[Rfam]
RNA sequence: CCCGUCCGCCUCGUGGACCCCCCGACCAUCCGGCGCCGCUCCCGGCUACCCUGGCGAGGUGCGCCUUCCACCGGAAGAAGACGCAUAGCCGACAGCCGUCGCACCCCAGGGAGCUCUCUUCAUG
Numbered sequence: 001c002c003c004g005u006c007c008g009c010c011u012c013g014u015g016g017a018c019c020c021c022c023c024g025a026c027c028a029u030c031c032g033g034c035g036c037c038g039c040u041c042c043c044g045g046c047u048a049c050c051c052u053g054g055c056g057a058g059g060u061g062c063g064c065c066u067u068c069c070a071c072c073g074g075a076a077g078a079a080g081a082c083g084c085a086u087a088g089c090c091g092a093c094a095g096c097c098g099u100c101g102c103a104c105c106c107c108a109g110g111g112a113g114c115u116c117u118c119u120u121c122a123u124g
Base pairs, nucleotide, nucleotide: 060085061084062083063082065080066079067078068077088102089101091100092099093098
A member of the RNA family "Streptomyces-metH RNA" from Streptomyces sporangiiformans, 124 nucleotides long. Pairs were carried over by alignment from the consensus structure, which is taken from published work. Taxonomically the source falls in Streptomyces (Bacteria, Bacillati, Actinomycetota, Kitasatosporales).